[Rfam]
RNA sequence: GAGCAAUGAUUAAAUCCUGUGCUAAUGUGACUGGUUGGGUCCGUCACAACUGACUGAUCUCUUGAUUAGCUCAGCACGCAUGAGCUC
Numbered sequence: 001g002a003g004c005a006a007u008g009a010u011u012a013a014a015u016c017c018u019g020u021g022c023u024a025a026u027g028u029g030a031c032u033g034g035u036u037g038g039g040u041c042c043g044u045c046a047c048a049a050c051u052g053a054c055u056g057a058u059c060u061c062u063u064g065a066u067u068a069g070c071u072c073a074g075c076a077c078g079c080a081u082g083a084g085c086u087c
Stems, first nucleotide, its partner, number of pairs: 001087004
RNA: small nucleolar RNA snoR114